[Rfam]
RNA sequence: CGUCGUCUGAGCGACGUUAAAUAGCUGUUAGGCUCAGAGCGGCGCGCCUCCCCUAUUUCUCGGGGUUGGG
Numbered sequence: 001c002g003u004c005g006u007c008u009g010a011g012c013g014a015c016g017u018u019a020a021a022u023a024g025c026u027g028u029u030a031g032g033c034u035c036a037g038a039g040c041g042g043c044g045c046g047c048c049u050c051c052c053c054u055a056u057u058u059c060u061c062g063g064g065g066u067u068g069g070g
Stems, first nucleotide, its partner, number of pairs: 001016004006038006025069003032040001047064003

The family of this 70-nucleotide RNA from Gordonia phage Austin is "Pistol ribozyme". Rfam links the family to the GO term catalytic activity. The literature on the family includes a 2020 paper in Angew Chem Int Ed Engl by Teplova et al., "Crucial Roles of Two Hydrated Mg(2+) Ions in Reaction Catalysis of the Pistol Ribozyme". The base pairs follow the family's consensus structure, which is taken from published work.